[Rfam]
RNA sequence: GUGGGCUACGGCGACAUGGUGCCCAAGACUUACGCCGGCAUGUUCGUGGGUGCGCUGUGCGCACUGGCCGGCGUGCUGACCAUCGCGCUUCCCGUGCCCGUGAUCGUGUCCAAC
Numbered sequence: 001g002u003g004g005g006c007u008a009c010g011g012c013g014a015c016a017u018g019g020u021g022c023c024c025a026a027g028a029c030u031u032a033c034g035c036c037g038g039c040a041u042g043u044u045c046g047u048g049g050g051u052g053c054g055c056u057g058u059g060c061g062c063a064c065u066g067g068c069c070g071g072c073g074u075g076c077u078g079a080c081c082a083u084c085g086c087g088c089u090u091c092c093c094g095u096g097c098c099c100g101u102g103a104u105c106g107u108g109u110c111c112a113a114c
Stems, first nucleotide, its partner, number of pairs: 001114002004111002007108005014101002018097001021095002037077004050062002
RNA: Potassium channel RNA editing signal